Source information: The record is a 141-nucleotide sequence from Erinaceus europaeus, which matches "U4 spliceosomal RNA" in Rfam. For this family Rfam cites "Cryo-EM Structure of a Pre-catalytic Human Spliceosome Primed for Activation" (Bertram et al., Cell, 2017). It is annotated as a spliceosomal small nuclear RNA. Pairs were carried over by alignment from the consensus structure, which is taken from published work. Rfam links the family to the GO terms spliceosomal tri-snRNP complex assembly and U4 snRNP. From the family's description: U4 small nuclear RNA (U4 snRNA) is a component of the major U2-dependent spliceosome. The match comes from Rfam's covariance-model search (103 bits).
[Rfam]
RNA sequence: AACUUUGAACAGUGGCAGCAUCAUAGCCAAUGAGGUCAAUCCGAUUCAUGAUUAUUGCUAAUUGAAAACUUGUCCCAAUACCCCGCCAUGAUGACUUGAAAUAUAGUCGGCAUUGGCAAUUUUUGACAGUCUCUACAGAGG
Numbered sequence: 001a002a003c004u005u006u007g008a009a010c011a012g013u014g015g016c017a018g019c020a021u022c023a024u025a026g027c028c029a030a031u032g033a034g035g036u037c038a039a040u041c042c043g044a045u046u047c048a049u050g051a052u053u054a055u056u057g058c059u060a061a062u063u064g065a066a067a068a069c070u071u072g073u074c075c076c077a078a079u080a081c082c083c084c085g086c087c088a089u090g091a092u093g094a095c096u097u098g099a100a101a102u103a104u105a106g107u108c109g110g111c112a113u114u115g116g117c118a119a120u121u122u123u124u125g126a127c128a129g130u131c132u133c134u135a136c137a138g139a140g141g
Base pairs, nucleotide, nucleotide: 020052021051022050023049024048026047034042035041085117086116087115088113089112090111092109093108094107095106096105130141131140132139133138